[Rfam]
Shown here is a 135-nucleotide sequence from Dicentrarchus labrax, a member of the family "Small nucleolar RNA SNORA17". On this family, see Ofengand and Bakin, J Mol Biol 1997: "Mapping to nucleotide resolution of pseudouridine residues in large subunit ribosomal RNAs from representative eukaryotes, prokaryotes, archaebacteria, mitochondria and chloroplasts". Its family is annotated with RNA processing and nucleolus in the Gene Ontology. The base pairs follow the family's consensus structure, which was predicted with RNAalifold. Its Rfam clan is "SNORA17 clan". Rfam describes the family as follows. snoRNA ACA 17 belongs to the H/ACA family of snoRNAs and is predicted to guide pseudouridylation of the 28S rRNA at positions U4659 and U4598. It shares the same host gene together with ACA43. NB This family has a high threshold value to exclude a large number of closely related sequences that do not appear to have conserved H and ACA boxes, and may be pseudogenes. It scores 47 bits against the family's covariance model.
RNA sequence: CAUGCCCCUUGAGGCGUUGCAGUCCAACAUCGUGUUGAGUCUGUGUCAUAAGGUGGCAGAGAAUAAAAGGCUUACAUUAUCAUCUGCAUUCAAUACCUCCAACAGUGGGGGUUUGGAGUGAUGUAGUCCAACAGA
Number, nucleotide and partner (000 for none) at each position: 001c000002a000003u058004g057005c056006c055007c053008c052009u051010u050011g049012a000013g047014g046015c045016g000017u000018u000019g044020c043021a042022g041023u000024c039025c037026a036027a035028c034029a000030u000031c000032g000033u000034g028035u027036u026037g025038a000039g024040u000041c022042u021043g020044u019045g015046u014047c013048a000049u011050a010051a009052g008053g007054u000055g006056g005057c004058a003059g000060a000061g000062a000063a000064u000065a000066a000067a000068a000069g129070g128071c000072u126073u125074a124075c123076a000077u000078u000079a000080u000081c000082a000083u000084c000085u000086g119087c118088a000089u000090u116091c115092a114093a113094u111095a000096c109097c108098u107099c000100c000101a000102a000103c000104a000105g000106u000107g098108g097109g096110g000111g094112u000113u093114u092115g091116g090117a000118g087119u086120g000121a000122u000123g075124u074125a073126g072127u000128c070129c069130a000131a000132c000133a000134g000135a000